[Rfam]
RNA: small nucleolar RNA snoR114
Organism: Phoenix dactylifera
RNA sequence: GAGCCAUGAGGAUAAUUGCGCAACCUGUGAUGCUAGGGCGCAUCACGACCGUCAGAUUAUUCCGACGAAUCUGCGCUUCUGAGCUC
Numbered sequence: 001g002a003g004c005c006a007u008g009a010g011g012a013u014a015a016u017u018g019c020g021c022a023a024c025c026u027g028u029g030a031u032g033c034u035a036g037g038g039c040g041c042a043u044c045a046c047g048a049c050c051g052u053c054a055g056a057u058u059a060u061u062c063c064g065a066c067g068a069a070u071c072u073g074c075g076c077u078u079c080u081g082a083g084c085u086c
Stems, first nucleotide, its partner, number of pairs: 001086004